Rfam assigns this 117-nucleotide sequence from Pantoea ananatis to the family "RtT RNA".
Lineage of the source: Bacteria > Pseudomonadati > Pseudomonadota > Enterobacterales > Pantoea ananatis.
About the family: This family represents a bacterial cis-regulatory element known as RtT RNA. The exact function of RtT is unknown although it is thought that it may be involved in changing the cellular response in relation to amino acid starvation.
The family has 57 seed sequences and 651 matches in Rfam 15.1.
The literature on the family includes a 1991 paper in Nucleic Acids Res by Bosl and Kersten, "A novel RNA product of the tyrT operon of Escherichia coli".
By type it is a cis-regulatory element.
Pairs were carried over by alignment from the consensus structure, which is taken from published work.
RNA sequence: UUUUCGCCUGAAUGAAAGAGGAUGAGCACCGCCGAAGGCGAUUCGCGCCGGGCGUCAGCGAGACAACGUUGCGAACGCAACGGUCCGAAGGGGCGCGUAAUCCUCUCUCGCCGACCA
Numbered sequence: 001u002u003u004u005c006g007c008c009u010g011a012a013u014g015a016a017a018g019a020g021g022a023u024g025a026g027c028a029c030c031g032c033c034g035a036a037g038g039c040g041a042u043u044c045g046c047g048c049c050g051g052g053c054g055u056c057a058g059c060g061a062g063a064c065a066a067c068g069u070u071g072c073g074a075a076c077g078c079a080a081c082g083g084u085c086c087g088a089a090g091g092g093g094c095g096c097g098u099a100a101u102c103c104u105c106u107c108u109c110g111c112c113g114a115c116c117a
Stems, first nucleotide, its partner, number of pairs: 015108001017106005023100001042089004049060002067082006